[Rfam]
The record is a 72-nucleotide sequence from Jiangella aurantiaca, which matches "6C RNA" in Rfam. Its family is annotated with sporulation in the Gene Ontology. Rfam classes the family as a cis-regulatory element. A search with the family's covariance model found it, with a score of 49 bits. NCBI's taxonomy places the organism under Bacteria, Actinomycetes, Jiangellales, Jiangellaceae, Jiangella.
RNA sequence: UUUUGACCCGGCCCGCCCCCCUGGCCGGGUCCCGCACGGCUCCUGCCUCCCACCCGGCAGGGGCCGUGUCUU
Numbered sequence: 001u002u003u004u005g006a007c008c009c010g011g012c013c014c015g016c017c018c019c020c021c022u023g024g025c026c027g028g029g030u031c032c033c034g035c036a037c038g039g040c041u042c043c044u045g046c047c048u049c050c051c052a053c054c055c056g057g058c059a060g061g062g063g064c065c066g067u068g069u070c071u072u
Stems, first nucleotide, its partner, number of pairs: 002034001005031009035068013
Dot-bracket structure: .(..(((((((((.........)))))))))..)(((((((((((((........)))))))))))))....